The family of this 99-nucleotide RNA from Pseudomonas salomonii is "t44 RNA". It is annotated as a small RNA.
RNA sequence: CCCCGCAAAGCUUAAAUCCACACACGUGUCGACACGAUGACCUGGGUGCCGGAGGCCUUGAUGCCGCUGGUUGGUCAUUGGGAUACGUGGAGGCCAAAC
Numbered sequence: 001c002c003c004c005g006c007a008a009a010g011c012u013u014a015a016a017u018c019c020a021c022a023c024a025c026g027u028g029u030c031g032a033c034a035c036g037a038u039g040a041c042c043u044g045g046g047u048g049c050c051g052g053a054g055g056c057c058u059u060g061a062u063g064c065c066g067c068u069g070g071u072u073g074g075u076c077a078u079u080g081g082g083a084u085a086c087g088u089g090g091a092g093g094c095c096a097a098a099c
Stems, first nucleotide, its partner, number of pairs: 023089008035080008048071005